[Rfam]
RNA sequence: GAGCCGGCUUUAGCUCAGCGGUUACUUCGACAGUGCUUUCUAUGGUGGAAAACCACCACUGUGCGUGGUUCGAGACCCGUGGGCGCUCUCCGGCCUUUUU
Numbered sequence: 001g002a003g004c005c006g007g008c009u010u011u012a013g014c015u016c017a018g019c020g021g022u023u024a025c026u027u028c029g030a031c032a033g034u035g036c037u038u039u040c041u042a043u044g045g046u047g048g049a050a051a052a053c054c055a056c057c058a059c060u061g062u063g064c065g066u067g068g069u070u071c072g073a074g075a076c077c078c079g080u081g082g083g084c085g086c087u088c089u090c091c092g093g094c095c096u097u098u099u100u
Base pairs, nucleotide, nucleotide: 003094004093005092006091007090013084014083015082016081018080019079020078021077026074027073028072029071030070